[Rfam]
RNA sequence: AAAACCUUAAAUAAUGAAAGCCCUACCUCUCUCUCAUCCUUGCGGCUCCUUGACCGCGCCAGUGAAAAUAAGGUGCUGUGCGUUCAA
Dot-bracket structure: .................................(....(((((((.(....).)))))..))....)....................
Description:
BsrC: an 87-nucleotide RNA sequence from Pontibacillus yanchengensis. It is annotated as a small RNA. Rfam 15.1 lists 572 matches to the family in 553 species. Rfam describes the family as follows. The 301 nucleotide sequence from Kouji Nakamura has been trimmed to a highly conserved ~85 nucleotide long core to form this family. Pairs were carried over by alignment from the consensus structure, which was predicted with CMfinder.